[Rfam]
RNA sequence: CCCUCCGAAGUUUCCCUCAGGAUAGCUGGUACUCGCGGAAAUGGAGGAGUUUCAUCCGGUAAAGCGAAUGAUUAGAGGUCUUGGGGACGAAACGUCCUCAACCUAUUCUCAAACUUUAAAUGGGUGAGAUGCCGAGCUUGCUUGAAUGCUGAAGCUUCGGCGAUUAAUCCGAGUAUCUAGUGGGCCAUUUUUGGUAAGCAGAACUGGCGCUGUGGGAUGAACCAAACGUCGAGUUAAGGGGCCUAAACGAAUGCUCAUCUAGACCCCAUCGAAAGGCGUUGGUUGCUAUAGACAGCAGGACGGUGGCCAUGGAAGUUGGAAUCCGCUAAGGAGUGUGUAACAACUCACCUGCCGAAGCAACUAGCCCUUAAAAUGGUAUGGCGCUCAAGCAUUCUCCCGAUACUCGACCGCCGGUGGCACUAAAGGCCAAGUUUCCCUCUUAGCGGGGGGAAGCCCAGGUCUCCAAGCCCCGGCGAGUAGGAGGGUCGCAGGGGUGAGCGCUGAAGGGAUCCGGCGUGAGCCGGCCUGGAGCCGCCCCUGGUGCAGAU
Numbered sequence: 001c002c003c004u005c006c007g008a009a010g011u012u013u014c015c016c017u018c019a020g021g022a023u024a025g026c027u028g029g030u031a032c033u034c035g036c037g038g039a040a041a042u043g044g045a046g047g048a049g050u051u052u053c054a055u056c057c058g059g060u061a062a063a064g065c066g067a068a069u070g071a072u073u074a075g076a077g078g079u080c081u082u083g084g085g086g087a088c089g090a091a092a093c094g095u096c097c098u099c100a101a102c103c104u105a106u107u108c109u110c111a112a113a114c115u116u117u118a119a120a121u122g123g124g125u126g127a128g129a130u131g132c133c134g135a136g137c138u139u140g141c142u143u144g145a146a147u148g149c150u151g152a153a154g155c156u157u158c159g160g161c162g163a164u165u166a167a168u169c170c171g172a173g174u175a176u177c178u179a180g181u182g183g184g185c186c187a188u189u190u191u192u193g194g195u196a197a198g199c200a201g202a203a204c205u206g207g208c209g210c211u212g213u214g215g216g217a218u219g220a221a222c223c224a225a226a227c228g229u230c231g232a233g234u235u236a237a238g239g240g241g242c243c244u245a246a247a248c249g250a251a252u253g254c255u256c257a258u259c260u261a262g263a264c265c266c267c268a269u270c271g272a273a274a275g276g277c278g279u280u281g282g283u284u285g286c287u288a289u290a291g292a293c294a295g296c297a298g299g300a301c302g303g304u305g306g307c308c309a310u311g312g313a314a315g316u317u318g319g320a321a322u323c324c325g326c327u328a329a330g331g332a333g334u335g336u337g338u339a340a341c342a343a344c345u346c347a348c349c350u351g352c353c354g355a356a357g358c359a360a361c362u363a364g365c366c367c368u369u370a371a372a373a374u375g376g377u378a379u380g381g382c383g384c385u386c387a388a389g390c391a392u393u394c395u396c397c398c399g400a401u402a403c404u405c406g407a408c409c410g411c412c413g414g415u416g417g418c419a420c421u422a423a424a425g426g427c428c429a430a431g432u433u434u435c436c437c438u439c440u441u442a443g444c445g446g447g448g449g450g451a452a453g454c455c456c457a458g459g460u461c462u463c464c465a466a467g468c469c470c471c472g473g474c475g476a477g478u479a480g481g482a483g484g485g486u487c488g489c490a491g492g493g494g495u496g497a498g499c500g501c502u503g504a505a506g507g508g509a510u511c512c513g514g515c516g517u518g519a520g521c522c523g524g525c526c527u528g529g530a531g532c533c534g535c536c537c538c539u540g541g542u543g544c545a546g547a548u
Base pairs, nucleotide, nucleotide: 001485002484003483004482005481006480011024013022014021015020028177029176030175031174032173033172050129051128052127053126054125055124056123057122062117063115064114069111070110071109074106076104077103078102081101082100083099084098085097086096088094131161132160133159134158135156136155137154138153139152184208185207186206187205189203190202191201192200193199213224214223215222228408229407230406231405232404234402238398239397240396247395249394252391253390254389274368275367276366278365279364280363281362282361283360284359285358286357287356295352296351297350298349299348301325302324303323307319308318326330331346335344336343409475410474411473412472413471414470416469417468418467487543489540490539491538492537493536494535495534496533498532499531506527507526513522514521515520